[Rfam]
RNA sequence: ACUUCGACGGUUCUCCGAGCUUUUAAUCCUACGUCAGACGAUACGGGUUUUUAGCCGUGGUAAUAAUGCCACCGGGGUGAGUAAAGAAAUGCACUCUCCUCCCACAUUUGGAAAGGUUAACAUGUCCCAAUUAC
Numbered sequence: 001a002c003u004u005c006g007a008c009g010g011u012u013c014u015c016c017g018a019g020c021u022u023u024u025a026a027u028c029c030u031a032c033g034u035c036a037g038a039c040g041a042u043a044c045g046g047g048u049u050u051u052u053a054g055c056c057g058u059g060g061u062a063a064u065a066a067u068g069c070c071a072c073c074g075g076g077g078u079g080a081g082u083a084a085a086g087a088a089a090u091g092c093a094c095u096c097u098c099c100u101c102c103c104a105c106a107u108u109u110g111g112a113a114a115g116g117u118u119a120a121c122a123u124g125u126c127c128c129a130a131u132u133a134c
Stems, first nucleotide, its partner, number of pairs: 006125001011120002015116002019055003025049005033042003057072005075100003079096004085090001101111002
RNA: Molybdenum/Tungsten riboswitch aptamer (Moco RNA motif)